[Rfam]
The family of this 180-nucleotide RNA sequence from Niallia endozanthoxylica is "Lysine riboswitch aptamer". The organism belongs to Niallia, within Bacteria. Riboswitches are metabolite binding domains within certain messenger RNAs that serve as precision sensors for their corresponding targets.
RNA sequence: AGUAAGGAUAGAGGCGCAAAGACCAUAAGUACACAAUAGGAGGAUAAUGAGAUCUGUUGAAGAUUGUGGAAAGGGGAAUUUGCCGAAGCUGAUAGAAUCUCAUUCUUCUUGAGGCUGGUUCUGUUAUUGAAUAAAUACAGAACUGUCAUAUAGGUAUCUAUAUGGAGGGCUAUCUUACGC
Numbered sequence: 001a002g003u004a005a006g007g008a009u010a011g012a013g014g015c016g017c018a019a020a021g022a023c024c025a026u027a028a029g030u031a032c033a034c035a036a037u038a039g040g041a042g043g044a045u046a047a048u049g050a051g052a053u054c055u056g057u058u059g060a061a062g063a064u065u066g067u068g069g070a071a072a073g074g075g076g077a078a079u080u081u082g083c084c085g086a087a088g089c090u091g092a093u094a095g096a097a098u099c100u101c102a103u104u105c106u107u108c109u110u111g112a113g114g115c116u117g118g119u120u121c122u123g124u125u126a127u128u129g130a131a132u133a134a135a136u137a138c139a140g141a142a143c144u145g146u147c148a149u150a151u152a153g154g155u156a157u158c159u160a161u162a163u164g165g166a167g168g169g170c171u172a173u174c175u176u177a178c179g180c
Stems, first nucleotide, its partner, number of pairs: 006175006016083005023076002032068006087116004094109004117144007125137004146165007